[Rfam]
RNA sequence: UGACCGUAGUUAAAUUAAUGAAAAAAAGAAUCUUACGGGCCGGUUAUUGUGGGUCUUUAUCUCUUCAAUCAACAUAUCUGCUUACCAAACUUCUCAUAAAU
Numbered sequence: 001u002g003a004c005c006g007u008a009g010u011u012a013a014a015u016u017a018a019u020g021a022a023a024a025a026a027a028g029a030a031u032c033u034u035a036c037g038g039g040c041c042g043g044u045u046a047u048u049g050u051g052g053g054u055c056u057u058u059a060u061c062u063c064u065u066c067a068a069u070c071a072a073c074a075u076a077u078c079u080g081c082u083u084a085c086c087a088a089a090c091u092u093c094u095c096a097u098a099a100a101u
Base pairs, nucleotide, nucleotide: 027094028093029092030091033088038082039081040080042078043077044076047072048071049070